This 72-nucleotide RNA sequence from Phyllostomus discolor belongs to the Rfam family "U1A polyadenylation inhibition element (PIE)".
Lineage of the source: Eukaryota > Opisthokonta > Amniota > Phyllostomidae > Phyllostomus.
Its family is annotated with regulation of mRNA polyadenylation in the Gene Ontology.
From the family's description: This family represents the U1A polyadenylation inhibition element (PIE). PIE is a regulatory RNA which is responsible for the regulation of the length of the polyA tail of the U1A pre-mRNA. The PIE is located in the U1A mRNA 3' UTR. PIE adopts a U-shaped structure, with binding sites for a single U1A protein at each bend and when complexed with the two proteins it blocks activity of poly(A) polymerase (PAP), and inhibits its activity.
The family's RNA type in Rfam is cis-regulatory element.
A search with the family's covariance model found it, with a score of 53 bits.

RNA sequence: UCACACAGCACUGUACCUAAUCUGUCUGCAGCUAUUGUACCUGGCACUGUUAGGCUGGAAUUAAAGUUUGGU
Number, nucleotide and partner (000 for none) at each position: 001u000002c000003a000004c000005a050006c049007a048008g047009c000010a000011c000012u000013g000014u000015a000016c000017c044018u043019a042020a000021u000022c031023u030024g029025u000026c000027u000028g000029c024030a023031g022032c000033u000034a000035u000036u000037g000038u000039a000040c000041c000042u019043g018044g017045c000046a000047c008048u007049g006050u005051u000052a000053g000054g000055c000056u000057g000058g000059a000060a000061u000062u000063a000064a000065a000066g000067u000068u000069u000070g000071g000072u000